[Rfam]
Nucleotides: 124
Base pairs, nucleotide, nucleotide: 002123003122004121061087062086063085064084065083066082
Number, partner (000 for none) and nucleotide at each position: 001000u002123a003122c004121c005000u006000g007000u008000g009000a010000u011000g012000a013000u014000a015000a016000u017000c018000c019000a020000a021000a022000g023000g024000c025000u026000u027000g028000u029000u030000u031000c032000u033000c034000a035000g036000a037000g038000a039000c040000a041000u042000u043000c044000g045000c046000a047000g048000u049000g050000g051000c052000c053000g054000c055000c056000u057000a058000a059000g060000a061087g062086c063085u064084u065083u066082c067000g068000c069000c070000u071000u072000c073000g074000c075000c076000a077000g078000g079000c080000u081000u082066g083065a084064g085063a086062g087061c088000u089000a090000a091000u092000g093000c094000u095000g096000u097000c098000u099000u100000u101000c102000u103000u104000c105000u106000u107000c108000c109000u110000u111000g112000g113000a114000u115000g116000u117000c118000u119000g120000a121004g122003g123002u124000u
Annotation: A member of the RNA family "Small nucleolar RNA SNORD14" from Lactuca sativa, 124 nucleotides long. By type it is a C/D-box small nucleolar RNA. It scores 75 bits against the family's covariance model. Rfam describes the family as follows. U14 small nucleolar RNA (U14 snoRNA) is required for early cleavages of eukaryotic precursor rRNAs. In yeasts, this molecule possess a stem-loop region (known as the Y-domain) which is essential for function. A similar structure, but with a different consensus sequence, is found in plants, but is absent in vertebrates.